The record is a 142-nucleotide sequence from Bambusicola thoracicus, which matches "Small nucleolar RNA SNORA5" in Rfam. Clan: SNORA5 clan. Rfam classes the family as an H/ACA-box small nucleolar RNA. The match comes from Rfam's covariance-model search (77 bits). The base pairs follow the family's consensus structure, which was predicted with RNAfold.
[Rfam]
RNA sequence: UGCAGCUGCGUCAAAUUCGGUCCUCAUCCAGCCCCGUGCUGGGGACCGGCCAAACAGCUGCCACAGCAACACCCCCUGCAGCUCAUGGGCCCCACUGUUGUUCUCUCUCAACCCUGGGGAUAAAUAAAUGCUGCAGACACUG
Numbered sequence: 001u002g003c004a005g006c007u008g009c010g011u012c013a014a015a016u017u018c019g020g021u022c023c024u025c026a027u028c029c030a031g032c033c034c035c036g037u038g039c040u041g042g043g044g045a046c047c048g049g050c051c052a053a054a055c056a057g058c059u060g061c062c063a064c065a066g067c068a069a070c071a072c073c074c075c076c077u078g079c080a081g082c083u084c085a086u087g088g089g090c091c092c093c094a095c096u097g098u099u100g101u102u103c104u105c106u107c108u109c110a111a112c113c114c115u116g117g118g119g120a121u122a123a124a125u126a127a128a129u130g131c132u133g134c135a136g137a138c139a140c141u142g
Stems, first nucleotide, its partner, number of pairs: 002061004018048009028038001078134005083128001090119005
Rfam's curators write: ACA5 is a member of the H/ACA class of snoRNA that guide the sites of modification of uridines to pseudouridines.